[Rfam]
RNA: Eukaryotic small subunit ribosomal RNA, nucleotides 613 to 1138
RNA sequence: CAGUUAAAAAGCUCGUAGUUGGAUUUCGGGUGGGGCUGUGCGGUCCGCCUCUGGUGUGCACUGCCUGGCUCCACCUUCCUGCCGGGGACGGGCUCCUGGGCUUUGGUCUGGGACUCGGAGUCGGCGAGGUUACUUUGAGUAAAUUAGAGUGUUCAAAGCAGGCCUAUGCUCUGAAUACAUUAGCAUGGAAUAACACGAUAGGACUCAAUCCUAUUUGUUGGUCUGUGGGACUGAGUAAUGAUUAAGAGGGGUAGUCGGGGGCAUUCGUAUUCCGUUGUCAGAGGUGAAAUUCUUGGAUUUACGGAAGACGAACAUCUGCGAAAGCAUUUGCCAAGGAUACUUUCAUUGAUCAAGAACGAAAGUUGGGGGCUCGAAGACGAUUAGAUACCGUCGUAGUCUCAACCAUAAACGAUGCCGACUAGGGAUUGGCAGAUGUUUCAUUGAUGACUCUGCCAGCACCUUAUGAGAAAUCAAAGUUUUUGGGUUCCGGGGGGAGUAUGGUCGCAAGGCUGAAACUUAAAGGAAU
Numbered sequence: 001c002a003g004u005u006a007a008a009a010a011g012c013u014c015g016u017a018g019u020u021g022g023a024u025u026u027c028g029g030g031u032g033g034g035g036c037u038g039u040g041c042g043g044u045c046c047g048c049c050u051c052u053g054g055u056g057u058g059c060a061c062u063g064c065c066u067g068g069c070u071c072c073a074c075c076u077u078c079c080u081g082c083c084g085g086g087g088a089c090g091g092g093c094u095c096c097u098g099g100g101c102u103u104u105g106g107u108c109u110g111g112g113a114c115u116c117g118g119a120g121u122c123g124g125c126g127a128g129g130u131u132a133c134u135u136u137g138a139g140u141a142a143a144u145u146a147g148a149g150u151g152u153u154c155a156a157a158g159c160a161g162g163c164c165u166a167u168g169c170u171c172u173g174a175a176u177a178c179a180u181u182a183g184c185a186u187g188g189a190a191u192a193a194c195a196c197g198a199u200a201g202g203a204c205u206c207a208a209u210c211c212u213a214u215u216u217g218u219u220g221g222u223c224u225g226u227g228g229g230a231c232u233g234a235g236u237a238a239u240g241a242u243u244a245a246g247a248g249g250g251g252u253a254g255u256c257g258g259g260g261g262c263a264u265u266c267g268u269a270u271u272c273c274g275u276u277g278u279c280a281g282a283g284g285u286g287a288a289a290u291u292c293u294u295g296g297a298u299u300u301a302c303g304g305a306a307g308a309c310g311a312a313c314a315u316c317u318g319c320g321a322a323a324g325c326a327u328u329u330g331c332c333a334a335g336g337a338u339a340c341u342u343u344c345a346u347u348g349a350u351c352a353a354g355a356a357c358g359a360a361a362g363u364u365g366g367g368g369g370c371u372c373g374a375a376g377a378c379g380a381u382u383a384g385a386u387a388c389c390g391u392c393g394u395a396g397u398c399u400c401a402a403c404c405a406u407a408a409a410c411g412a413u414g415c416c417g418a419c420u421a422g423g424g425a426u427u428g429g430c431a432g433a434u435g436u437u438u439c440a441u442u443g444a445u446g447a448c449u450c451u452g453c454c455a456g457c458a459c460c461u462u463a464u465g466a467g468a469a470a471u472c473a474a475a476g477u478u479u480u481u482g483g484g485u486u487c488c489g490g491g492g493g494g495a496g497u498a499u500g501g502u503c504g505c506a507a508g509g510c511u512g513a514a515a516c517u518u519a520a521a522g523g524a525a526u
Stems, first nucleotide, its partner, number of pairs: 001489001003487001009486001011357001013355002018350003248344004252339002255336002260332004266310002270306006277299001281292003315326001318325002362403006372396001376392004414485003417478003421461003426456008435448003465472002491518003500511004